Nucleotides: 074
Base pairs, nucleotide, nucleotide: 010026011025012024013023016065017064018063019062020061046055047054048053
Number, partner (000 for none) and nucleotide at each position: 001000a002000c003000u004000u005000a006000u007000c008000u009000c010026g011025g012024g013023a014000a015000u016065g017064a018063a019062g020061u021000a022000c023013u024012c025011c026010c027000a028000u029000g030000g031000u032000u033000u034000u035000u036000a037000a038000c039000c040000u041000a042000a043000a044000c045000u046055g047054c048053a049000u050000u051000u052000a053048u054047g055046c056000u057000g058000a059000u060000g061020a062019c063018u064017u065016c066000u067000g068000u069000a070000u071000u072000a073000a074000u

The record is a 74-nucleotide RNA from Anaerocolumna aminovalerica, which matches "Fluoride riboswitch aptamer (crcB RNA motif)" in Rfam. Its family is annotated with response to fluoride and positive regulation of gene expression in the Gene Ontology. The family's consensus secondary structure is taken from published work.